The record is an 88-nucleotide RNA sequence from Vibrio galatheae, which matches "c-di-GMP-I riboswitch aptamer" in Rfam. On this family, see Sudarsan et al., Science 2008: "Riboswitches in Eubacteria Sense the Second Messenger Cyclic Di-GMP".

RNA sequence: CUUCACUUCUGGCAAACUAGCCGAAAGGUUAAGACGCAAAGCCUCCGGUCUGUCGACACGUGUUGUCUAUGAUAGCGGGGCUGCCAUU
Numbered sequence: 001c002u003u004c005a006c007u008u009c010u011g012g013c014a015a016a017c018u019a020g021c022c023g024a025a026a027g028g029u030u031a032a033g034a035c036g037c038a039a040a041g042c043c044u045c046c047g048g049u050c051u052g053u054c055g056a057c058a059c060g061u062g063u064u065g066u067c068u069a070u071g072a073u074a075g076c077g078g079g080g081c082u083g084c085c086a087u088u
Base pairs, nucleotide, nucleotide: 012037013036018031019030020029021028022027040082041081042080043079045078046077047076048073049072050071055067056066057065058064
It scores 70 bits against the family's covariance model. The family's consensus secondary structure is taken from published work. Its family is annotated with cyclic-di-GMP binding in the Gene Ontology.